[Rfam]
The record is a 76-nucleotide sequence from Theobroma umbraticum, which matches "Small nucleolar RNA R12" in Rfam. The family's RNA type in Rfam is C/D-box small nucleolar RNA. It scores 63 bits against the family's covariance model. Rfam links the family to the GO terms nucleolus and RNA processing.
Nucleotides: 076
Base pairs, nucleotide, nucleotide: 002075003074004073005072
Number, partner (000 for none) and nucleotide at each position: 001000u002075g003074g004073a005072g006000g007000a008000u009000g010000a011000u012000g013000a014000a015000a016000u017000c018000a019000a020000u021000c022000a023000g024000a025000c026000g027000g028000a029000u030000u031000c032000c033000c034000a035000u036000u037000g038000a039000u040000u041000c042000c043000g044000a045000g046000a047000u048000g049000a050000g051000a052000a053000c054000a055000u056000a057000a058000c059000c060000a061000g062000c063000u064000a065000c066000u067000u068000c069000u070000g071000a072005c073004u074003u075002c076000u